[Rfam]
A member of the RNA family "SAM riboswitch aptamer (S box leader)" from Niabella soli, 113 nucleotides long.
The SAM riboswitch is found upstream of a number of genes which code for proteins involved in methionine or cysteine biosynthesis in Gram-positive bacteria.
The source organism's lineage runs through Bacteria, Chitinophagia, Chitinophagaceae, Niabella and Niabella soli.
RNA sequence: AUCUUAUCAAGAAAGGCAGAGGGUUUGGCCCAAUGAAGCCUUGGCAACCUGCUACGUACAAGCGUGGCAAGGUGCCAAUUCCACCUCCCGUAACCGCGGGGGAAAGAUAAGUC
Numbered sequence: 001a002u003c004u005u006a007u008c009a010a011g012a013a014a015g016g017c018a019g020a021g022g023g024u025u026u027g028g029c030c031c032a033a034u035g036a037a038g039c040c041u042u043g044g045c046a047a048c049c050u051g052c053u054a055c056g057u058a059c060a061a062g063c064g065u066g067g068c069a070a071g072g073u074g075c076c077a078a079u080u081c082c083a084c085c086u087c088c089c090g091u092a093a094c095c096g097c098g099g100g101g102g103a104a105a106g107a108u109a110a111g112u113c
Stems, first nucleotide, its partner, number of pairs: 003111006013042005021031003026083003043076004048072002050069006080105001085102006